RNA sequence: CUUCACGUUGAGCCCCACGCACAACACCUGAGCUGCUGUUUUGUUCGUUCGGCUCGCGUUACGC
Numbered sequence: 001c002u003u004c005a006c007g008u009u010g011a012g013c014c015c016c017a018c019g020c021a022c023a024a025c026a027c028c029u030g031a032g033c034u035g036c037u038g039u040u041u042u043g044u045u046c047g048u049u050c051g052g053c054u055c056g057c058g059u060u061a062c063g064c
Stems, first nucleotide, its partner, number of pairs: 001063001003061001005059003009056006018047002021044004026039002
This 64-nucleotide RNA from Astyanax mexicanus belongs to the Rfam family "mir-375 microRNA precursor family". The base pairs follow the family's consensus structure, which was predicted with RNAalifold. Rfam 15.1 lists 824 matches to the family in 730 species.